A member of the RNA family "mir-627 microRNA precursor family" from Chlorocebus sabaeus, 87 nucleotides long. Rfam 15.1 lists 29 matches to the family in 21 species. Its family is annotated with RISC complex and miRNA-mediated post-transcriptional gene silencing in the Gene Ontology. Taxonomically the source falls in Chlorocebus (Eukaryota, Metazoa, Simiiformes, Cercopithecoidea).
[Rfam]
RNA sequence: UUCUUAUUACUGGUAGUGAGUCUCUAAGAAAAGAGGAGGAAAACCACCACCUCCUCUUUUCUUAGAGACUCACUACCGGUAAUAAGU
Number, nucleotide and partner (000 for none) at each position: 001u000002u000003c086004u085005u084006a083007u082008u081009a080010c000011u078012g077013g076014u075015a074016g073017u072018g071019a070020g069021u068022c067023u066024c065025u000026a063027a062028g061029a060030a059031a058032a057033g056034a055035g054036g053037a052038g051039g050040a000041a000042a000043a000044c000045c000046a000047c000048c000049a000050c039051c038052u037053c036054c035055u034056c033057u032058u031059u030060u029061c028062u027063u026064a000065g024066a023067g022068a021069c020070u019071c018072a017073c016074u015075a014076c013077c012078g011079g000080u009081a008082a007083u006084a005085a004086g003087u000